About this RNA:
This 110-nucleotide sequence from Sphingobium sp. RAC03 belongs to the Rfam family "TPP riboswitch aptamer (THI element)". Rfam's curators write: Vitamin B(1) in its active form thiamin pyrophosphate (TPP) is an essential coenzyme that is synthesised by coupling of pyrimidine and thiazole moieties in bacteria.
[Rfam]
RNA sequence: CCAGCAUCCCCGGGGGACCGUCCGCAGACGGUUGAGAGGCAGCUAUGUGGCUGCGACCCGUUGAACCUGAUCCGGCUAACACCGGCGUAGGGAGGGUCAGCGCGCUUUCA
Numbered sequence: 001c002c003a004g005c006a007u008c009c010c011c012g013g014g015g016g017a018c019c020g021u022c023c024g025c026a027g028a029c030g031g032u033u034g035a036g037a038g039g040c041a042g043c044u045a046u047g048u049g050g051c052u053g054c055g056a057c058c059c060g061u062u063g064a065a066c067c068u069g070a071u072c073c074g075g076c077u078a079a080c081a082c083c084g085g086c087g088u089a090g091g092g093a094g095g096g097u098c099a100g101c102g103c104g105c106u107u108u109c110a
Stems, first nucleotide, its partner, number of pairs: 008096003011060004017032005039054005066091004072085004

A search with the family's covariance model found it, with a score of 70 bits.
Pairs were carried over by alignment from the consensus structure, which is taken from published work.